[Rfam]
RNA sequence: AGGGGUGACUGGUUUCGACUUCGUCCGUUACGGCAGGGGAAGCGAGCCGAGGAAGCCGACGUCGUCUCGAGAAUCGGUCGUCGGAAACCAAUAAGCGCCAACACCAAGCGCGCUGACUUCGCUCUCGCCGCCUGAGGCGGGUAAGCGAGUCUGUCGGUCUGGAAUCGCCUUCGGUCCAGUAACCGGCAUCAGCUAGAAGGCUGGCCAACCGAGCCCGGUCGCGGGGCUCGUGCGGCGAGAUAAAUCAGCGACUGGGCCCGUCACACCGACUCGCUCGCGUGAUCGGAGGGGCCGAGUAGAGGCAUAGCGAGCUGCGCUCGGAGAAGCCCUGACAAGACGCCGAAGGACCCGGGUUCGAUUCCCGGCACCUCCACGA
Numbered sequence: 001a002g003g004g005g006u007g008a009c010u011g012g013u014u015u016c017g018a019c020u021u022c023g024u025c026c027g028u029u030a031c032g033g034c035a036g037g038g039g040a041a042g043c044g045a046g047c048c049g050a051g052g053a054a055g056c057c058g059a060c061g062u063c064g065u066c067u068c069g070a071g072a073a074u075c076g077g078u079c080g081u082c083g084g085a086a087a088c089c090a091a092u093a094a095g096c097g098c099c100a101a102c103a104c105c106a107a108g109c110g111c112g113c114u115g116a117c118u119u120c121g122c123u124c125u126c127g128c129c130g131c132c133u134g135a136g137g138c139g140g141g142u143a144a145g146c147g148a149g150u151c152u153g154u155c156g157g158u159c160u161g162g163a164a165u166c167g168c169c170u171u172c173g174g175u176c177c178a179g180u181a182a183c184c185g186g187c188a189u190c191a192g193c194u195a196g197a198a199g200g201c202u203g204g205c206c207a208a209c210c211g212a213g214c215c216c217g218g219u220c221g222c223g224g225g226g227c228u229c230g231u232g233c234g235g236c237g238a239g240a241u242a243a244a245u246c247a248g249c250g251a252c253u254g255g256g257c258c259c260g261u262c263a264c265a266c267c268g269a270c271u272c273g274c275u276c277g278c279g280u281g282a283u284c285g286g287a288g289g290g291g292c293c294g295a296g297u298a299g300a301g302g303c304a305u306a307g308c309g310a311g312c313u314g315c316g317c318u319c320g321g322a323g324a325a326g327c328c329c330u331g332a333c334a335a336g337a338c339g340c341c342g343a344a345g346g347a348c349c350c351g352g353g354u355u356c357g358a359u360u361c362c363c364g365g366c367a368c369c370u371c372c373a374c375g376a
Base pairs, nucleotide, nucleotide: 002371003370004369005368006367007366019345020344021343022342023341025339028336032333034331035330036329037328038327043320044319045318046317047316048069049068050067051066052065056084057083058082059081060080061079125144127142128140129139130138131137152188153187154186155185156184157183159179160178161177162176163175165173167201168200169199170198171197172196204236205235206234210230211229212228217253218252219251220250221249222248255293256292257291258290259289261287262286268284269283275309280306281305349365350364351363352362353361
The record is a 376-nucleotide RNA sequence from Phytohabitans houttuyneae, which matches "transfer-messenger RNA" in Rfam. Its Rfam clan is "tRNA clan". A search with the family's covariance model found it, with a score of 123 bits. Rfam's curators write: Bacterial tmRNA, also known as 10Sa RNA or SsrA, is named for its dual tRNA and mRNA-like properties.